[Rfam]
RNA sequence: AGCGAUGAUGAUUGAAGUCAAUGCCUGACCUGAUAUGGCUUGUGUCUAUAAGCUUUGAUCAGUAGAUGACUCAUUAUUUAAUCUUCUCUCUGAGCUG
Numbered sequence: 001a002g003c004g005a006u007g008a009u010g011a012u013u014g015a016a017g018u019c020a021a022u023g024c025c026u027g028a029c030c031u032g033a034u035a036u037g038g039c040u041u042g043u044g045u046c047u048a049u050a051a052g053c054u055u056u057g058a059u060c061a062g063u064a065g066a067u068g069a070c071u072c073a074u075u076a077u078u079u080a081a082u083c084u085u086c087u088c089u090c091u092g093a094g095c096u097g
Base pairs, nucleotide, nucleotide: 001096002095003094038053039052040051041050
Rfam assigns this 97-nucleotide RNA from Strongylocentrotus purpuratus to the family "Z30 small nucleolar RNA". On this family, see Galardi et al., Mol Cell Biol 2002: "Purified box C/D snoRNPs are able to reproduce site-specific 2'-O-methylation of target RNA in vitro". The source organism's lineage runs through Eukaryota, Deuterostomia, Eleutherozoa, Echinacea and Strongylocentrotus. Rfam classes the family as a C/D-box small nucleolar RNA. Gene Ontology terms of the family: nucleolus and RNA processing.